[Rfam]
RNA sequence: GUAGAUUGAAGUUUAACUAACAAGGAUUACGAACGACUGCUAUUUAAUAUUACUCUUACAUAUCUAUCCUUGGGAAGGUCUGUGAUAAAGGUCAAUCGAGACUUUAGCAGGGUUCUAUGUGUUUAACGUAUGGCAGAUGAUCAAAAAGCUUCCGGGUGAAGUUACUUUCUUAAUGGUAAUAUUCGAGUACAAGAUCAACAUUCGUUGAGAUGCUCUUAUCAUUGAGAAAGUUGUAAAAGUCUGUGGUCAGCAACAUGAAGUUAAAUGAGUGAGAUGAUCGGAACUCAAUUCAGACUACUUUCUAUCUAC
Numbered sequence: 001g002u003a004g005a006u007u008g009a010a011g012u013u014u015a016a017c018u019a020a021c022a023a024g025g026a027u028u029a030c031g032a033a034c035g036a037c038u039g040c041u042a043u044u045u046a047a048u049a050u051u052a053c054u055c056u057u058a059c060a061u062a063u064c065u066a067u068c069c070u071u072g073g074g075a076a077g078g079u080c081u082g083u084g085a086u087a088a089a090g091g092u093c094a095a096u097c098g099a100g101a102c103u104u105u106a107g108c109a110g111g112g113u114u115c116u117a118u119g120u121g122u123u124u125a126a127c128g129u130a131u132g133g134c135a136g137a138u139g140a141u142c143a144a145a146a147a148g149c150u151u152c153c154g155g156g157u158g159a160a161g162u163u164a165c166u167u168u169c170u171u172a173a174u175g176g177u178a179a180u181a182u183u184c185g186a187g188u189a190c191a192a193g194a195u196c197a198a199c200a201u202u203c204g205u206u207g208a209g210a211u212g213c214u215c216u217u218a219u220c221a222u223u224g225a226g227a228a229a230g231u232u233g234u235a236a237a238a239g240u241c242u243g244u245g246g247u248c249a250g251c252a253a254c255a256u257g258a259a260g261u262u263a264a265a266u267g268a269g270u271g272a273g274a275u276g277a278u279c280g281g282a283a284c285u286c287a288a289u290u291c292a293g294a295c296u297a298c299u300u301u302c303u304a305u306c307u308a309c
Stems, first nucleotide, its partner, number of pairs: 001309004008302002012273004018267001022071005035055002038052002080293003084289001090248004100114005116130005133244006149230003
Nuclear RNase P: a 309-nucleotide RNA from Adineta steineri. From the family's description: Ribonuclease P (RNase P) is a ubiquitous endoribonuclease, found in archaea, bacteria and eukarya as well as chloroplasts and mitochondria. Its best characterised activity is the generation of mature 5'-ends of tRNAs by cleaving the 5'-leader elements of precursor-tRNAs. The match comes from Rfam's covariance-model search (88 bits). The source organism's lineage runs through Eukaryota, Opisthokonta, Metazoa, Protostomia and Adineta. By type it is a ribozyme. Pairs were carried over by alignment from the consensus structure, which is taken from published work. The literature on the family includes a 2002 paper in Annu Rev Biochem by Xiao et al., "Eukaryotic Ribonuclease P: A Plurality of Ribonucleoprotein Enzymes".